[Rfam]
RNA: SAM riboswitch aptamer (S box leader)
Nucleotides: 088
Stems, first nucleotide, its partner, number of pairs: 001088001003086006013043005021032003026076004044068004049064002052060003072080001
Number, partner (000 for none) and nucleotide at each position: 001088a002000a003086u004085c005084c006083a007082u008081c009000c010000c011000g012000a013043g014042c015041g016040g017039c018000c019000g020000a021032g022031a023030g024000a025000c026076c027075u028074g029073g030023c031022u032021c033000c034000g035000c036000g037000a038000a039017g040016c041015c042014g043013c044068a045067g046066c047065a048000a049064c050063c051000a052060c053059c054058c055000g056000g057000u058054g059053g060052g061000c062000a063050g064049g065047u066046g067045c068044u069000a070000a071000c072080g073029c074028c075027a076026g077000g078000a079000c080072c081008g082007a083006u084005g085004g086003a087000g088001u